RNA sequence: UGUGUUGUGUGUGUGUGUGUGUGUGUGUGUGUGGUGUGUGUGUGUGUGUGUGUGUGUGCGUGUUGUGUGUGUGUGUAUGUGUGUAUACAUACAUAACAUACAUACAUACACACACACACACACACACACACACCCACACACAACACAACACACACACACAGUGUGUGUGUGUGUGUGUAUGGUGUGUGUAUACAUACAUACAUACACACACACACACACACACAACACACACACACAC
Numbered sequence: 001u002g003u004g005u006u007g008u009g010u011g012u013g014u015g016u017g018u019g020u021g022u023g024u025g026u027g028u029g030u031g032u033g034g035u036g037u038g039u040g041u042g043u044g045u046g047u048g049u050g051u052g053u054g055u056g057u058g059c060g061u062g063u064u065g066u067g068u069g070u071g072u073g074u075g076u077a078u079g080u081g082u083g084u085a086u087a088c089a090u091a092c093a094u095a096a097c098a099u100a101c102a103u104a105c106a107u108a109c110a111c112a113c114a115c116a117c118a119c120a121c122a123c124a125c126a127c128a129c130a131c132a133c134c135c136a137c138a139c140a141c142a143a144c145a146c147a148a149c150a151c152a153c154a155c156a157c158a159c160a161g162u163g164u165g166u167g168u169g170u171g172u173g174u175g176u177g178u179a180u181g182g183u184g185u186g187u188g189u190a191u192a193c194a195u196a197c198a199u200a201c202a203u204a205c206a207c208a209c210a211c212a213c214a215c216a217c218a219c220a221c222a223c224a225a226c227a228c229a230c231a232c233a234c235a236c237a238c
Stems, first nucleotide, its partner, number of pairs: 013151004028140003032136003035132006042125005049118010164229003175217004180212001182211004187202005
The record is a 238-nucleotide sequence from Penaeus vannamei, which matches "Small nucleolar RNA SNORA23" in Rfam.
The members of this family belong to the H/ACA class of snoRNAs which are thought to guide the sites of modification of uridines to pseudouridines. This family includes human snoRNA ACA23 (SNORA23) and mouse snoMBI-1. ACA23 is predicted to guide the pseudouridylation of residue U3737 and U4331 of 28S rRNA.
It scores 52 bits against the family's covariance model.
Rfam links the family to the GO terms RNA processing and nucleolus.